This 101-nucleotide RNA sequence from Coprococcus sp. AF21-14LB belongs to the Rfam family "THF (Tetrahydrofolate) riboswitch aptamer". The family has 101 seed sequences and 747 matches in Rfam 15.1. About the family: Tetrahydrofolate (THF) riboswitch was first reported for Ames et al. as an RNA motif in 5' untranslated (5'-UTR)regions of folate transport and biosynthesis genes in Firmicutes genomes.

RNA sequence: AGCAGAGUAGAGAUGAGCGCGUUAAGUGUCAGACGGACGGGGAGUUGCCGGCUGAACGAAAAGUAUUUAUACUUGCGGUGCGCAUUUCGCAUCCCGCUGCU
Numbered sequence: 001a002g003c004a005g006a007g008u009a010g011a012g013a014u015g016a017g018c019g020c021g022u023u024a025a026g027u028g029u030c031a032g033a034c035g036g037a038c039g040g041g042g043a044g045u046u047g048c049c050g051g052c053u054g055a056a057c058g059a060a061a062a063g064u065a066u067u068u069a070u071a072c073u074u075g076c077g078g079u080g081c082g083c084a085u086u087u088c089g090c091a092u093c094c095c096g097c098u099g100c101u
Stems, first nucleotide, its partner, number of pairs: 001101005010088006017081003020077003026057002029055004034050003040094003044090001061074004